[Rfam]
RNA sequence: CUUGAUGGAGCCGAGCCAGAGGGGUUCGCCGGUCUCCGGGCGGUCCUGGCCGUAGGUGGCGAGGAGUGCCUGCGCCUC
Numbered sequence: 001c002u003u004g005a006u007g008g009a010g011c012c013g014a015g016c017c018a019g020a021g022g023g024g025u026u027c028g029c030c031g032g033u034c035u036c037c038g039g040g041c042g043g044u045c046c047u048g049g050c051c052g053u054a055g056g057u058g059g060c061g062a063g064g065a066g067u068g069c070c071u072g073c074g075c076c077u078c
Stems, first nucleotide, its partner, number of pairs: 014026004034074001036072001041068002046063002050059003